[Rfam]
A member of the RNA family "Streptomyces-metK RNA" from Streptomyces pristinaespiralis, 118 nucleotides long. Pairs were carried over by alignment from the consensus structure, which is taken from published work. By type it is a small RNA. The organism belongs to Streptomyces pristinaespiralis, within Bacteria.

RNA sequence: GCGAGACGGGUUGUCCGGUCCCGGAGCGCGACCGAUAAACUGGUCGCGGAACGUCGCGGGGCGCAGCCCCCUGCCGGUCCGUCAAUGAUCAGCCAGCAGCCGCUGCAACCCCAGGGAG
Numbered sequence: 001g002c003g004a005g006a007c008g009g010g011u012u013g014u015c016c017g018g019u020c021c022c023g024g025a026g027c028g029c030g031a032c033c034g035a036u037a038a039a040c041u042g043g044u045c046g047c048g049g050a051a052c053g054u055c056g057c058g059g060g061g062c063g064c065a066g067c068c069c070c071c072u073g074c075c076g077g078u079c080c081g082u083c084a085a086u087g088a089u090c091a092g093c094c095a096g097c098a099g100c101c102g103c104u105g106c107a108a109c110c111c112c113a114g115g116g117a118g
Stems, first nucleotide, its partner, number of pairs: 048080003052076002056074001058072004094105004